[Rfam]
RNA sequence: GUGAUUUUUUUCAUAGUAUUAGAUUUAAGGUUAACAAAGGUUGGGCUCGGCGGAGCCCAUUUUUUAUAU
Numbered sequence: 001g002u003g004a005u006u007u008u009u010u011u012c013a014u015a016g017u018a019u020u021a022g023a024u025u026u027a028a029g030g031u032u033a034a035c036a037a038a039g040g041u042u043g044g045g046c047u048c049g050g051c052g053g054a055g056c057c058c059a060u061u062u063u064u065u066a067u068a069u
Stems, first nucleotide, its partner, number of pairs: 042059007
Shown here is a 69-nucleotide sequence from Caecibacteroides pullorum, a member of the family "Bacteroidetes FopS (family of paralogous sRNAs)".
On this family, see Ruttiger et al., Nat Commun 2025: "The global RNA-binding protein RbpB is a regulator of polysaccharide utilization in Bacteroides thetaiotaomicron".